[Rfam]
RNA sequence: GGCAGAGUAAAUGAGUGUGCGUGAGAGUGCUCUGGGAUGGGACGUUGCCCAGGGACGAAAUGCUUAGGCUGCGUUACAUUCAUUGCGUCCGCUGUC
Numbered sequence: 001g002g003c004a005g006a007g008u009a010a011a012u013g014a015g016u017g018u019g020c021g022u023g024a025g026a027g028u029g030c031u032c033u034g035g036g037a038u039g040g041g042a043c044g045u046u047g048c049c050c051a052g053g054g055a056c057g058a059a060a061u062g063c064u065u066a067g068g069c070u071g072c073g074u075u076a077c078a079u080u081c082a083u084u085g086c087g088u089c090c091g092c093u094g095u096c
Stems, first nucleotide, its partner, number of pairs: 001096005010084010020073003027056002030054007040090005060070001062069002
The family of this 96-nucleotide RNA from Halonatronomonas betaini is "THF (Tetrahydrofolate) riboswitch aptamer".
It scores 67 bits against the family's covariance model.
The source organism's lineage runs through Bacteria, Bacillati, Bacillota, Halanaerobiales and Halonatronomonas.
Rfam links the family to the GO term tetrahydrofolate metabolic process.
A reference for the family is Trausch and Batey (2014), "A disconnect between high-affinity binding and efficient regulation by antifolates and purines in the tetrahydrofolate riboswitch", Chem Biol.
Rfam describes the family as follows. Tetrahydrofolate (THF) riboswitch was first reported for Ames et al. as an RNA motif in 5' untranslated (5'-UTR)regions of folate transport and biosynthesis genes in Firmicutes genomes.
The family's consensus secondary structure is taken from published work.